[Rfam]
Rfam assigns this 160-nucleotide RNA from Prunus yedoensis to the family "U4 spliceosomal RNA". A search with the family's covariance model found it, with a score of 88 bits. Pairs were carried over by alignment from the consensus structure, which is taken from published work. Its Rfam clan is "U4 clan". Rfam classes the family as a spliceosomal small nuclear RNA.
RNA sequence: AUCUUCGCGCUUGGGACAAUGACGCCGCUUAUGAGGUUCUAACCGAGGCGCUUCUCUUGCUGGUUGAAAACUAUAUCCAAACCCCCUCUUGGGCCUUGGUUCAGCCAUGUGCCCUUGAGAAUUUCUGGAAGGGCUCUCUCUUCGGAGUAAGGGUUUAGCC
Numbered sequence: 001a002u003c004u005u006c007g008c009g010c011u012u013g014g015g016a017c018a019a020u021g022a023c024g025c026c027g028c029u030u031a032u033g034a035g036g037u038u039c040u041a042a043c044c045g046a047g048g049c050g051c052u053u054c055u056c057u058u059g060c061u062g063g064u065u066g067a068a069a070a071c072u073a074u075a076u077c078c079a080a081a082c083c084c085c086c087u088c089u090u091g092g093g094c095c096u097u098g099g100u101u102c103a104g105c106c107a108u109g110u111g112c113c114c115u116u117g118a119g120a121a122u123u124u125c126u127g128g129a130a131g132g133g134c135u136c137u138c139u140c141u142u143c144g145g146a147g148u149a150a151g152g153g154u155u156u157a158g159c160c
Base pairs, nucleotide, nucleotide: 021054022053024051025050027049028048029047035044036043037042086119087118088117091114092113093112094111096109099106132160133159134158135157